[Rfam]
RNA: Lysine riboswitch aptamer
Organism: Sutterella parvirubra
RNA sequence: AGUUGUGAUAGAGGCGCGGAACGGAUGAGUAGCCGUCGGAGGGGACACCCGACGAAGACGGCGAAAGGCCCGCCCGCCGAAACGCGGCGCCCGGUAGAGCACCGCGUUGGGCACGGUGGAAAGACCACCGUGACUCCUGACGGAUUCACGCCGUCAGAGGCGCUAUCGGUGGU
Numbered sequence: 001a002g003u004u005g006u007g008a009u010a011g012a013g014g015c016g017c018g019g020a021a022c023g024g025a026u027g028a029g030u031a032g033c034c035g036u037c038g039g040a041g042g043g044g045a046c047a048c049c050c051g052a053c054g055a056a057g058a059c060g061g062c063g064a065a066a067g068g069c070c071c072g073c074c075c076g077c078c079g080a081a082a083c084g085c086g087g088c089g090c091c092c093g094g095u096a097g098a099g100c101a102c103c104g105c106g107u108u109g110g111g112c113a114c115g116g117u118g119g120a121a122a123g124a125c126c127a128c129c130g131u132g133a134c135u136c137c138u139g140a141c142g143g144a145u146u147c148a149c150g151c152c153g154u155c156a157g158a159g160g161c162g163c164u165a166u167c168g169g170u171g172g173u
Base pairs, nucleotide, nucleotide: 006168007167008166009165010164011163016077017076018075019074023070024069032062033061034060035059036058037057081108082107083106084105085104086103087102089100090099092097109135110134112132113131114130115129116128117127118126119125137157138156139155140154141153142152143151